[Rfam]
RNA sequence: ACAGGGCUCUGACCUAUGAAUUGACAGCCAGUGCUCUUGUCUCCUCUCUGGCUGCCAAUUCCAUAGGUCACAGGUAUGU
Numbered sequence: 001a002c003a004g005g006g007c008u009c010u011g012a013c014c015u016a017u018g019a020a021u022u023g024a025c026a027g028c029c030a031g032u033g034c035u036c037u038u039g040u041c042u043c044c045u046c047u048c049u050g051g052c053u054g055c056c057a058a059u060u061c062c063a064u065a066g067g068u069c070a071c072a073g074g075u076a077u078g079u
Base pairs, nucleotide, nucleotide: 001079002078003077005075007073008072010070011069013067014066015065016064018061019060020059021058022057023056025054026053027052028051029050030049031048
Dot-bracket structure: (((.(.((.((.((((.((((((.(((((((................))))))).))))))..)))).)).)).).)))